[Rfam]
RNA sequence: UACGUUCAUCUCAACACAUAGUUGGGACGCAAGUAAGCAAUAACAGUGCUGAAGGAACGGGAA
Numbered sequence: 001u002a003c004g005u006u007c008a009u010c011u012c013a014a015c016a017c018a019u020a021g022u023u024g025g026g027a028c029g030c031a032a033g034u035a036a037g038c039a040a041u042a043a044c045a046g047u048g049c050u051g052a053a054g055g056a057a058c059g060g061g062a063a
Base pairs, nucleotide, nucleotide: 003059004058005057006056007055009027010026011025012024013023014022015021030060036050037049038048
Background: The family of this 63-nucleotide RNA sequence is "Glutamine riboswitch aptamer (glnA leader)".